Record summary:
Rfam assigns this 75-nucleotide RNA from Myotis brandtii to the family "mir-9223 microRNA precursor family". Rfam links the family to the GO terms miRNA-mediated post-transcriptional gene silencing and RISC complex. It scores 61 bits against the family's covariance model. NCBI's taxonomy places the organism under Eukaryota, Bilateria, Eutheria, Chiroptera, Myotis.

RNA sequence: GGAAGUCCUCGGGUGAUGCACCUCGGAAUCAGUCUCCCUCCUCUCUGGUUCCGGAUGCAUCAUCAGAAAACCACA
Number, nucleotide and partner (000 for none) at each position: 001g000002g074003a000004a000005g071006u070007c000008c000009u067010c066011g000012g064013g063014u062015g061016a060017u059018g000019c057020a056021c000022c054023u053024c000025g052026g051027a050028a049029u048030c047031a046032g045033u000034c000035u000036c000037c000038c000039u000040c000041c000042u000043c000044u000045c032046u031047g030048g029049u028050u027051c026052c025053g023054g022055a000056u020057g019058c000059a017060u016061c015062a014063u013064c012065a000066g010067a009068a000069a000070a006071c005072c000073a000074c002075a000